[Rfam]
RNA sequence: GCCGGGUUGGGUGGCGCCAACUUGUCACGGAUAUGCUUCUGUCCGGGUAGUAAGGUGUGAGGAUUGUGGUAUGCGUUGCUGAAUUACUAUCCCCAGGAUGUGGAUGAUGCGUCCAUCUCAAACCAGGAGUCGACAUUGGGGUAUUGUCGUAAGACAGUGCACCGAGGUCACUAAGGAAGGGUGUACUACCCCAGGCUGGUUAACAGAGCAGGGAAAAACCCUCGCUCUUGGUAGUGGGAGGAUCUCGUAUCAGAAUCCUGAUGUAUUUCAACUGCGCUGUAAACAGUAAUUCGACCACCUUGCAA
Numbered sequence: 001g002c003c004g005g006g007u008u009g010g011g012u013g014g015c016g017c018c019a020a021c022u023u024g025u026c027a028c029g030g031a032u033a034u035g036c037u038u039c040u041g042u043c044c045g046g047g048u049a050g051u052a053a054g055g056u057g058u059g060a061g062g063a064u065u066g067u068g069g070u071a072u073g074c075g076u077u078g079c080u081g082a083a084u085u086a087c088u089a090u091c092c093c094c095a096g097g098a099u100g101u102g103g104a105u106g107a108u109g110c111g112u113c114c115a116u117c118u119c120a121a122a123c124c125a126g127g128a129g130u131c132g133a134c135a136u137u138g139g140g141g142u143a144u145u146g147u148c149g150u151a152a153g154a155c156a157g158u159g160c161a162c163c164g165a166g167g168u169c170a171c172u173a174a175g176g177a178a179g180g181g182u183g184u185a186c187u188a189c190c191c192c193a194g195g196c197u198g199g200u201u202a203a204c205a206g207a208g209c210a211g212g213g214a215a216a217a218a219c220c221c222u223c224g225c226u227c228u229u230g231g232u233a234g235u236g237g238g239a240g241g242a243u244c245u246c247g248u249a250u251c252a253g254a255a256u257c258c259u260g261a262u263g264u265a266u267u268u269c270a271a272c273u274g275c276g277c278u279g280u281a282a283a284c285a286g287u288a289a290u291u292c293g294a295c296c297a298c299c300u301u302g303c304a305a
Base pairs, nucleotide, nucleotide: 001048002047003046004023005022006021007020008019009018010017028045029044030043031042032041050303051302052301053300054299055298056297057296061292062291063290064289065288066287067286070281071280072279073277074276075275080270081269082268083267085265086264090263093260095259096258097257098256099255101253105252106251107250108249109248110247111246113241114240116239117238118237119236120235122232123231124230125229126228127227128226129225130224132169133168134167136165137164138163139162141160142159143158144157145156146155147154148153171175178222179221180220181219182218187215189213190212191211196206197205198204
Shown here is a 305-nucleotide RNA sequence from Phytophthora nicotianae, a member of the family "Metazoan signal recognition particle RNA". The family has 91 seed sequences and 383,523 matches in Rfam 15.1. Rfam's curators write: The signal recognition particle (SRP) is a universally conserved ribonucleoprotein. A search with the family's covariance model found it, with a score of 144 bits.